This 91-nucleotide sequence from Rhodobiaceae bacterium UBA7378 belongs to the Rfam family "Glycine riboswitch aptamer". The literature on the family includes a 2004 paper in Science by Mandal et al., "A glycine-dependent riboswitch that uses cooperative binding to control gene expression". A search with the family's covariance model found it, with a score of 60 bits. Taxonomically the source falls in Rhodobiaceae (Bacteria, Pseudomonadati, Alphaproteobacteria, Hyphomicrobiales).
RNA sequence: ACCCGCGUUACGGGAGACGCUGUCUUUAUAGGCAGGGCCGAAGGAGCAACCGCCCUCGGAAACUCUCAGGCAAAAGGACCGUAGCCGGAUA
Numbered sequence: 001a002c003c004c005g006c007g008u009u010a011c012g013g014g015a016g017a018c019g020c021u022g023u024c025u026u027u028a029u030a031g032g033c034a035g036g037g038c039c040g041a042a043g044g045a046g047c048a049a050c051c052g053c054c055c056u057c058g059g060a061a062a063c064u065c066u067c068a069g070g071c072a073a074a075a076g077g078a079c080c081g082u083a084g085c086c087g088g089a090u091a
Stems, first nucleotide, its partner, number of pairs: 007085007020035004037071003040067002044065003050058001